[Rfam]
RNA sequence: CUUGAGCGAGCCGAGCCACAGCGGCCGGUCCGCCGGCCGGUUCCUGCCGUAGGUGGCGAUGAGCGCCUGCGCCUC
Numbered sequence: 001c002u003u004g005a006g007c008g009a010g011c012c013g014a015g016c017c018a019c020a021g022c023g024g025c026c027g028g029u030c031c032g033c034c035g036g037c038c039g040g041u042u043c044c045u046g047c048c049g050u051a052g053g054u055g056g057c058g059a060u061g062a063g064c065g066c067c068u069g070c071g072c073c074u075c
Stems, first nucleotide, its partner, number of pairs: 015025003031071003038065002045058001047056003
RNA: ASpks TB sRNA